[Rfam]
RNA sequence: UUACUCUGUCUUCAUCGCAAUUAUCGAAUUAAUCUUUCGCCUUUUACUAAAGAUUACCGUGUGAUGAAGAAACUCUAAUGAGUCUACAAAUAAUUUUUCUUUGGCCUUACCUUCUUGGUUUA
Numbered sequence: 001u002u003a004c005u006c007u008g009u010c011u012u013c014a015u016c017g018c019a020a021u022u023a024u025c026g027a028a029u030u031a032a033u034c035u036u037u038c039g040c041c042u043u044u045u046a047c048u049a050a051a052g053a054u055u056a057c058c059g060u061g062u063g064a065u066g067a068a069g070a071a072a073c074u075c076u077a078a079u080g081a082g083u084c085u086a087c088a089a090a091u092a093a094u095u096u097u098u099c100u101u102u103g104g105c106c107u108u109a110c111c112u113u114c115u116u117g118g119u120u121u122a
Stems, first nucleotide, its partner, number of pairs: 003083004009070011030056008101122001103121002106118002

The record is a 122-nucleotide RNA from Polypedilum vanderplanki, which matches "U5 spliceosomal RNA" in Rfam. The family's consensus secondary structure is taken from published work. Rfam's curators write: U5 RNA is a component of both types of known spliceosome. The precise function of this molecule is unknown, though it is known that the 5' loop is required for splice site selection and p220 binding, and that both the 3' stem-loop and the Sm site are important for Sm protein binding and cap methylation. By type it is a spliceosomal small nuclear RNA.